[Rfam]
RNA sequence: ACACCACUGGACGAAGCGGUUGGGCCAUCUUUCUGUAAAAGGAAUUAGGCCCAGGAAAGUCCCCGGGCCCACUAUCUGCAGAGAUGCAGGCCUGGAAACAGGUAGCCUCCGUAGGCUUGGAGUCUUAUCGCCCCGUGCGAUGGGCUGAGACACGUGUGGAGCCUUUAGGCUUCAAGCCCGGAGUAAUCUUGGCCGACUUAACAGUUAUUCGCUUAGUCCAUUGGACUAACUGAACGGGGCUUACGUUUCAGUGGUG
Dot-bracket structure: .((((((((((..((((((..((((..(((((......))))).....))))....[[[.[[[[............((((....)))).(((((....))))).....(((...((((((.........(((.........((((......(....)...))))...))).)))))).)))...........................)))))).((((...)))).........]]]]]]]....))))))))))

This 256-nucleotide sequence from Pyrus ussuriensis x Pyrus communis belongs to the Rfam family "RNase MRP". Rfam classes the family as a ribozyme. From the family's description: RNase MRP is an enzymatically active ribonucleoprotein with two distinct roles in eukaryotes. In mitochondria it plays a direct role in the initiation of mitochondrial DNA replication. In the nucleus it is involved in precursor rRNA processing, where it cleaves the internal transcribed spacer 1 between 18S and 5.8S rRNAs. Despite distinct functions, RNase MRP has been shown to be evolutionarily related to RNase P. Like eukaryotic RNase P, RNase MRP is not catalytically active without associated protein subunits. The base pairs follow the family's consensus structure, which is taken from published work.